[Rfam]
RNA sequence: CUACCAAAGGUUUUUUUGGGGGGAAGGUUUUUAAAUAACCUUUACCAACUUGAGCUAUUUGGGAGAAUAAAGAAGACCACACUCCACAGUGGGCUAUAUCACUAAACAUAUAGUUCACUACUAUUUUGUGGCCUACAUU
Numbered sequence: 001c002u003a004c005c006a007a008a009g010g011u012u013u014u015u016u017u018g019g020g021g022g023g024a025a026g027g028u029u030u031u032u033a034a035a036u037a038a039c040c041u042u043u044a045c046c047a048a049c050u051u052g053a054g055c056u057a058u059u060u061g062g063g064a065g066a067a068u069a070a071a072g073a074a075g076a077c078c079a080c081a082c083u084c085c086a087c088a089g090u091g092g093g094c095u096a097u098a099u100c101a102c103u104a105a106a107c108a109u110a111u112a113g114u115u116c117a118c119u120a121c122u123a124u125u126u127u128g129u130g131g132c133c134u135a136c137a138u139u
Base pairs, nucleotide, nucleotide: 004062005061006060007059008058012054013053014052018050019049022046023045025043026040027039028038029037074134075133077131078130079129080128081127088119089118090117091116092115093114094113095112096111097110098109099108